[Rfam]
RNA sequence: GUUUUCGGGUAAUUGCGGUCUAAUAUUGAUUAGGCUGAGGAAAGUCCAUGCUCGCACAGUCUGAGAUGUCUGUAGUGUUCGUGCUUAGCGAAAUCAUAAGCUAAGGUAUCUUUUUAAUAAGAUAACGGCAGAAAAAACAGCUAAAGUUUUUAAACCAUGCUGGAGUAUUCUUGAAAGUGCCACAGUGACGAAGUAAUUUUAGAAAUGAAAUUAGUGGAACGCGGUAAACCCCUCGAGCGAGCAACCCAAACAAUGGUAGGGGCACUCUUCUUAAGGAAUUCAACGAGGAGAAGAGACAAGUAAUUUGUAGAUAGAUAAUUACCAGUCUUAUUUUUGCCUGAAAAAAUAAGACUACAGAACAUGGCUUAUAGAA
Numbered sequence: 001g002u003u004u005u006c007g008g009g010u011a012a013u014u015g016c017g018g019u020c021u022a023a024u025a026u027u028g029a030u031u032a033g034g035c036u037g038a039g040g041a042a043a044g045u046c047c048a049u050g051c052u053c054g055c056a057c058a059g060u061c062u063g064a065g066a067u068g069u070c071u072g073u074a075g076u077g078u079u080c081g082u083g084c085u086u087a088g089c090g091a092a093a094u095c096a097u098a099a100g101c102u103a104a105g106g107u108a109u110c111u112u113u114u115u116a117a118u119a120a121g122a123u124a125a126c127g128g129c130a131g132a133a134a135a136a137a138c139a140g141c142u143a144a145a146g147u148u149u150u151u152a153a154a155c156c157a158u159g160c161u162g163g164a165g166u167a168u169u170c171u172u173g174a175a176a177g178u179g180c181c182a183c184a185g186u187g188a189c190g191a192a193g194u195a196a197u198u199u200u201a202g203a204a205a206u207g208a209a210a211u212u213a214g215u216g217g218a219a220c221g222c223g224g225u226a227a228a229c230c231c232c233u234c235g236a237g238c239g240a241g242c243a244a245c246c247c248a249a250a251c252a253a254u255g256g257u258a259g260g261g262g263c264a265c266u267c268u269u270c271u272u273a274a275g276g277a278a279u280u281c282a283a284c285g286a287g288g289a290g291a292a293g294a295g296a297c298a299a300g301u302a303a304u305u306u307g308u309a310g311a312u313a314g315a316u317a318a319u320u321a322c323c324a325g326u327c328u329u330a331u332u333u334u335u336g337c338c339u340g341a342a343a344a345a346a347u348a349a350g351a352c353u354a355c356a357g358a359a360c361a362u363g364g365c366u367u368a369u370a371g372a373a
Stems, first nucleotide, its partner, number of pairs: 004373003007369001008323007016037006042367003046364005051241005056073004061068001079236003083232001084105006106126001107124006127231002130171004138162004146155002177229002179225003194213008245261003265295007296308005325352011
A member of the RNA family "Bacterial RNase P class B" from Vagococcus entomophilus, 373 nucleotides long. By type it is a ribozyme. Its Rfam clan is "RNaseP clan". For this family Rfam cites "Ribonuclease P: unity and diversity in a tRNA processing ribozyme" (Frank and Pace, Annu Rev Biochem, 1998). Gene Ontology terms of the family: ribonuclease P activity, dimeric ribonuclease P complex and tRNA processing. The organism belongs to Vagococcus, within Bacteria. The match comes from Rfam's covariance-model search (345 bits). Ribonuclease P (RNase P) is a ubiquitous endoribonuclease, found in archaea, bacteria and eukarya as well as chloroplasts and mitochondria.